[Rfam]
RNA: Small nucleolar RNA SNORA77
RNA sequence: GCAGACUCACUCUGUGCCUGACUGCAAUCUUCAGUCCAGGGGCUUUUUCAGUCUGCUAGAGUAAUGGUCCAGGGUGUUGAACUCUUCUUUCCUUGUAGAAGACUUGCAAUUGCUCCUGGGACACAAUU
Numbered sequence: 001g002c003a004g005a006c007u008c009a010c011u012c013u014g015u016g017c018c019u020g021a022c023u024g025c026a027a028u029c030u031u032c033a034g035u036c037c038a039g040g041g042g043c044u045u046u047u048u049c050a051g052u053c054u055g056c057u058a059g060a061g062u063a064a065u066g067g068u069c070c071a072g073g074g075u076g077u078u079g080a081a082c083u084c085u086u087c088u089u090u091c092c093u094u095g096u097a098g099a100a101g102a103c104u105u106g107c108a109a110u111u112g113c114u115c116c117u118g119g120g121a122c123a124c125a126a127u128u
Stems, first nucleotide, its partner, number of pairs: 001056006014043002017040004022034003069119005074113002076110004081105001086102003